[Rfam]
A member of the RNA family "L31-Firmicutes ribosomal protein leader", 34 nucleotides long. Its Rfam clan is "Ribosomal Protein L31 Leader clan". Rfam classes the family as a cis-regulatory leader. For this family Rfam cites "Discovery of 20 novel ribosomal leader candidates in bacteria and archaea" (Eckert and Weinberg, BMC Microbiol, 2020).
RNA sequence: CUCUGAUUAAAGAAUUAAAUCAGGGCCGAAGGAG
Numbered sequence: 001c002u003c004u005g006a007u008u009a010a011a012g013a014a015u016u017a018a019a020u021c022a023g024g025g026c027c028g029a030a031g032g033a034g
Base pairs, nucleotide, nucleotide: 001025002024003023004022005021007018008017009016